[Rfam]
Nucleotides: 120
Stems, first nucleotide, its partner, number of pairs: 018102002021099006029091002032088003036084006045075002
Number, partner (000 for none) and nucleotide at each position: 001000a002000u003000g004000u005000a006000a007000g008000a009000a010000u011000g012000g013000g014000a015000g016000a017000u018102a019101g020000a021099c022098a023097g024096g025095g026094a027000c028000g029091a030090g031000a032088c033087a034086g035000a036084g037083c038082a039081u040080g041079g042000a043000a044000u045075g046074g047000a048000c049000c050000a051000c052000u053000c054000a055000a056000c057000a058000c059000a060000a061000a062000c063000g064000u065000u066000g067000u068000u069000g070000u071000u072000g073000c074046u075045c076000u077000u078000u079041c080040c081039a082038u083037g084036c085000a086034c087033u088032g089000c090030c091029u092000c093000u094026u095025c096024c097023c098022u099021g100000g101019c102018u103000c104000u105000c106000c107000g108000c109000u110000u111000u112000c113000g114000g115000c116000c117000u118000u119000u120000u